[Rfam]
The record is an 88-nucleotide sequence from Tenebrionibacter intestinalis, which matches "t44 RNA" in Rfam.
Rfam classes the family as a small RNA.
Pairs were carried over by alignment from the consensus structure, which was predicted with LocARNA.
The source organism's lineage runs through Bacteria, Pseudomonadota, Gammaproteobacteria, Enterobacteriaceae and Tenebrionibacter.
RNA sequence: AACUCACUUUGUGUAUAACACACACGUAUCGGCACAUAUUCCGGGGUGCCCCCAGGGGUCGGUAAUAUGGGAUACGUGGAGGCAUAAC
Numbered sequence: 001a002a003c004u005c006a007c008u009u010u011g012u013g014u015a016u017a018a019c020a021c022a023c024a025c026g027u028a029u030c031g032g033c034a035c036a037u038a039u040u041c042c043g044g045g046g047u048g049c050c051c052c053c054a055g056g057g058g059u060c061g062g063u064a065a066u067a068u069g070g071g072a073u074a075c076g077u078g079g080a081g082g083c084a085u086a087a088c
Base pairs, nucleotide, nucleotide: 023078024077025076026075027074028073029072030071035069036068037067038066039065041062042061043060048059049058050057051056